A member of the RNA family "SAM riboswitch aptamer (S box leader)" from Parcubacteria bacterium RAAC4_OD1_1, 111 nucleotides long. Taxonomically the source falls in Candidatus Parcubacteria (Bacteria, Bacteria candidate phyla). It scores 54 bits against the family's covariance model.
RNA sequence: UAGUUAUCAAGAGUAUGGCGAGAGUAUUGGCUCAAUGACCCAUCAGCAACCUGCAGAAACAAGGUGCUAAAUCCAACCAAAUAGUGGAAACACUAUAUGGAAAGAUAAGAC
Numbered sequence: 001u002a003g004u005u006a007u008c009a010a011g012a013g014u015a016u017g018g019c020g021a022g023a024g025u026a027u028u029g030g031c032u033c034a035a036u037g038a039c040c041c042a043u044c045a046g047c048a049a050c051c052u053g054c055a056g057a058a059a060c061a062a063g064g065u066g067c068u069a070a071a072u073c074c075a076a077c078c079a080a081a082u083a084g085u086g087g088a089a090a091c092a093c094u095a096u097a098u099g100g101a102a103a104g105a106u107a108a109g110a111c
Stems, first nucleotide, its partner, number of pairs: 004108005013044001015043004022033003027076004045068004050064002053060001072103001077100003081096006